A member of the RNA family "Guanidine-I riboswitch aptamer" from Plasticicumulans lactativorans, 105 nucleotides long.
[Rfam]
RNA sequence: UUCAUUGGCCGCUAGGGUUCCGGUCCGCAUCGCGGACGCCUGGUCCGAGAGCGGCCGGCCAUCCCCGGCGGGGUGGCUGCACGGAGGGACAAAAGCCCGGGAGAU
Numbered sequence: 001u002u003c004a005u006u007g008g009c010c011g012c013u014a015g016g017g018u019u020c021c022g023g024u025c026c027g028c029a030u031c032g033c034g035g036a037c038g039c040c041u042g043g044u045c046c047g048a049g050a051g052c053g054g055c056c057g058g059c060c061a062u063c064c065c066c067g068g069c070g071g072g073g074u075g076g077c078u079g080c081a082c083g084g085a086g087g088g089a090c091a092a093a094a095g096c097c098c099g100g101g102a103g104a105u
Base pairs, nucleotide, nucleotide: 007056008055009054010053011052012051015046016045020043021042022040023037024036025035026034027033028032057078058077059076060075061074062073063072064071080100082103086098087097088096